[Rfam]
RNA sequence: GCCCUAUAAUUGUUGGAGGCUGUUGUGCAGGUACAUCUCUCCAGCGGAUACAAUGGGCAAGAUCAAUCAUGUGAUUUAUGCACAGGAGCUGUUUCUCCUCAACAGCCAUUGAUAUGCAAUGUACUCUAACAUUU
Number, nucleotide and partner (000 for none) at each position: 001g058002c057003c056004c055005u000006a000007u050008a049009a000010u047011u046012g045013u044014u043015g042016g041017a040018g000019g037020c000021u035022g034023u033024u000025g000026u000027g000028c000029a000030g000031g000032u000033a023034c022035a021036u000037c019038u000039c000040u017041c016042c015043a014044g013045c012046g011047g010048a000049u008050a007051c000052a000053a000054u000055g004056g003057g002058c001059a000060a000061g000062a000063u000064c000065a000066a000067u000068c000069a000070u000071g124072u123073g000074a122075u121076u000077u000078a000079u000080g117081c116082a000083c111084a110085g109086g000087a000088g106089c105090u104091g103092u102093u101094u000095c000096u000097c000098c000099u000100c000101a093102a092103c091104a090105g089106c088107c000108a000109u085110u084111g083112a000113u000114a000115u000116g081117c080118a000119a000120u000121g075122u074123a072124c071125u000126c000127u000128a000129a000130c000131a000132u000133u000134u000
Small nucleolar RNA SNORA84: a 134-nucleotide RNA from Tupaia belangeri. The match comes from Rfam's covariance-model search (68 bits). Its family is annotated with nucleolus and RNA processing in the Gene Ontology.